[Rfam]
Nucleotides: 100
Base pairs, nucleotide, nucleotide: 002099003098004097005096010088011087012086013085014084015083016082017081018080019078020077021076025055026054028053029052030051031050032049034048035047039094040093041092043090059075060074061073062072
Number, partner (000 for none) and nucleotide at each position: 001000u002099g003098u004097a005096g006000a007000g008000u009000a010088g011087g012086c013085a014084u015083u016082g017081c018080g019078c020077g021076u022000a023000a024000a025055g026054u027000g028053u029052c030051u031050u032049a033000u034048g035047g036000a037000u038000g039094g040093g041092a042000a043090g044000u045000u046000g047035c048034c049032u050031g051030a052029g053028a054026a055025c056000g057000a058000a059075g060074g061073a062072g063000c064000a065000a066000g067000a068000u069000a070000a071000g072062c073061u074060c075059c076021a077020c078019g079000a080018u081017g082016u083015a084014a085013u086012g087011c088010c089000g090043c091000a092041u093040c094039c095000g096005c097004u098003a099002c100000u

The family of this 100-nucleotide RNA sequence from Blautia liquoris is "THF (Tetrahydrofolate) riboswitch aptamer". NCBI's taxonomy places the organism under Bacteria, Bacillati, Lachnospirales, Lachnospiraceae, Blautia. Its family is annotated with tetrahydrofolate metabolic process in the Gene Ontology.